[Rfam]
RNA sequence: GGGCAAAUACCAGAGUGGCCAAAUGGGGCAGACUGUAAAUCUGCUGGUUUAUACCUUCGGUGGUUCGAAUCCAUCUUUGCCCA
Number, nucleotide and partner (000 for none) at each position: 001g082002g081003g080004c079005a078006a077007a076008u000009a000010c026011c025012a024013g000014a000015g000016u000017g000018g000019c000020c000021a000022a000023a000024u012025g011026g010027g000028g044029c043030a042031g041032a040033c000034u000035g000036u000037a000038a000039a000040u032041c031042u030043g029044c028045u000046g000047g000048u000049u000050u000051a000052u000053a000054c000055c000056u000057u000058c000059g075060g074061u073062g072063g071064u000065u000066c000067g000068a000069a000070u000071c063072c062073a061074u060075c059076u007077u006078u005079g004080c003081c002082c001083a000